Nucleotides: 336
Stems, first nucleotide, its partner, number of pairs: 001336004009331008018322003035059005044049001060087012088092001100315004106309001107307002111125003128163008136153001140149003166302004171232003176229002178225005185220003191214002196209005233251006252256001262289001272288006
Number, partner (000 for none) and nucleotide at each position: 001336u002335g003334a004333g005000a006000g007000a008000a009331c010330g011329a012328u013327g014326c015325u016324g017000a018322a019321g020320g021000a022000a023000c024000u025000c026000g027000g028000c029000a030000a031000a032000u033000u034000g035059c036058u037057c038056c039055c040000g041000u042000a043000a044049g045000u046000u047000c048000g049044c050000g051000a052000g053000a054000a055039g056038g057037g058036a059035g060087a061086c062085c063084u064083a065082u066081a067080u068079g069078a070077g071076g072000g073000c074000a075000a076071c077070c078069u079068u080067g081066u082065a083064u084063g085062g086061g087060u088092g089000g090000c091000a092088c093000a094000g095000a096000c097000c098000a099000g100315g101314g102313g103312g104000u105000u106309g107307c108306g109000a110000c111125u112124g113123u114000u115000u116000a117000u118000c119000a120000a121000a122000a123113a124112c125111a126000c127000a128163g129162g130161g131160c132159u133158c134157u135156g136153c137000g138000a139000a140149g141148c142147c143000g144000c145000a146000a147142g148141g149140c150000g151000a152000c153136g154000u155000a156135u157134a158133g159132g160131g161130u162129c163128u164000g165000a166302c167301g168300c169299c170000u171232g172231c173230c174000c175000g176229g177228u178225g179224c180223c181222g182221g183000a184000a185220g186219g187218u188000u189000a190000a191214g192213a193000g194000g195000a196209g197208u198207u199206g200205u201000g202000a203000g204000a205200g206199c207198a208197g209196c210000g211000a212000a213192u214191u215000g216000a217000a218187g219186c220185c221182c222181c223180g224179g225178u226000a227000a228177a229176c230173g231172g232171c233251g234250g235249c236248c237247g238246u239000a240000a241000c242000u243000a244000u245000a246238a247237c248236g249235g250234u251233c252256c253000u254000a255000a256252g257000g258000u259000a260000g261000c262289g263000a264000a265000a266000u267000u268000c269000c270000u271000u272288g273287u274286c275285g276284g277283g278000u279000a280000a281000g282000u283277u284276c285275c286274g287273a288272c289262c290000u291000g292000c293000a294000c295000g296000a297000a298000u299169g300168g301167c302166g303000u304000a305000a306108c307107g308000a309106c310000u311000u312103c313102c314101c315100c316000g317000c318000u319000g320020u321019c322018u323000c324016c325015a326014g327013c328012a329011u330010c331009g332000a333004c334003u335002c336001a

Shown here is a 336-nucleotide part of an RNA from Cohaesibacter gelatinilyticus, a member of the family "Bacterial large subunit ribosomal RNA". The family's consensus secondary structure is taken from published work.